[Rfam]
RNA sequence: CGGGGAACACGCCGCCUCCCCGUCAGAUGACCUCCAUCCAAGCGCUGC
Numbered sequence: 001c002g003g004g005g006a007a008c009a010c011g012c013c014g015c016c017u018c019c020c021c022g023u024c025a026g027a028u029g030a031c032c033u034c035c036a037u038c039c040a041a042g043c044g045c046u047g048c
Stems, first nucleotide, its partner, number of pairs: 001022006011048002014045002026038004
RNA: chrB-b RNA